[Rfam]
RNA: Plastid-psbA-1 3UTR RNA
Organism: Eutrema salsugineum
RNA sequence: UUGAAGCUCCAUCUACAAAUGUAUAAUUCUUUAGCAUGAGUCUAAACCUAGUUUAGUAAUACUAAAAAACGAGCAAUGUAAAUCUUCUUUAAAUUCAAAAGAAAGCUUAUAUUGCUCAUUU
Numbered sequence: 001u002u003g004a005a006g007c008u009c010c011a012u013c014u015a016c017a018a019a020u021g022u023a024u025a026a027u028u029c030u031u032u033a034g035c036a037u038g039a040g041u042c043u044a045a046a047c048c049u050a051g052u053u054u055a056g057u058a059a060u061a062c063u064a065a066a067a068a069a070c071g072a073g074c075a076a077u078g079u080a081a082a083u084c085u086u087c088u089u090u091a092a093a094u095u096c097a098a099a100a101g102a103a104a105g106c107u108u109a110u111a112u113u114g115c116u117c118a119u120u121u
Base pairs, nucleotide, nucleotide: 008023010021011020012019067121068120069119071117072116073115074114075113076112077111078110079109081107083105085103086102087101088100089099